The family of this 227-nucleotide part of an RNA from Pseudoxanthomonas suwonensis is "Bacterial large subunit ribosomal RNA". The base pairs follow the family's consensus structure, which is taken from published work. Clan: LSU clan. The source organism's lineage runs through Bacteria, Pseudomonadota, Lysobacterales, Lysobacteraceae and Pseudoxanthomonas suwonensis.
RNA sequence: GACUUACAGUUCGUGGCAAGCUUAACCGUAUAGGGGAGGCGAAGGGAAACCGAGUCUGAAUAGGGCGCAUAGUCGCGGGCUGUAGACCCGAAACCGGGUGAUCUAGUCAUGCCCAGGGUGAAGGUGCGGUAACACGCACUGGAGGCCCGAACCCACUCCCGUUGCAAAGGUAGGGGAUGAGGUGUGAUUAGGAGUGAAAAGCUAAUCGAACCCGGAGAUAGCUGGUU
Number, nucleotide and partner (000 for none) at each position: 001g000002a000003c000004u000005u084006a083007c082008a081009g080010u079011u078012c077013g076014u075015g074016g073017c072018a000019a000020g040021c039022u038023u037024a000025a000026c034027c033028g000029u000030a000031u000032a000033g027034g026035g000036g000037a023038g022039g021040c020041g000042a000043a000044g051045g050046g000047a000048a000049a000050c045051c044052g000053a000054g066055u065056c064057u063058g000059a000060a000061u000062a000063g057064g056065g055066c054067g000068c000069a000070u000071a000072g017073u016074c015075g014076c013077g012078g011079g010080c009081u008082g007083u006084a005085g000086a000087c225088c224089c000090g222091a000092a000093a000094c215095c214096g213097g212098g211099u210100g000101a000102u000103c191104u190105a189106g188107u187108c186109a185110u184111g183112c182113c181114c179115a000116g148117g147118g146119u145120g000121a000122a000123g140124g139125u138126g137127c136128g135129g000130u000131a000132a000133c000134a000135c128136g127137c126138a125139c124140u123141g000142g000143a000144g000145g119146c118147c117148c116149g000150a000151a000152c176153c175154c174155a000156c173157u172158c000159c170160c169161g000162u000163u000164g000165c000166a000167a000168a000169g160170g159171u000172a157173g156174g154175g153176g152177a000178u000179g114180a000181g113182g112183u111184g110185u109186g108187a107188u106189u105190a104191g103192g000193a203194g202195u201196g000197a000198a000199a000200a000201g195202c194203u193204a000205a000206u000207c000208g000209a000210a099211c098212c097213c096214g095215g094216a000217g000218a000219u000220a000221g000222c090223u000224g088225g087226u000227u000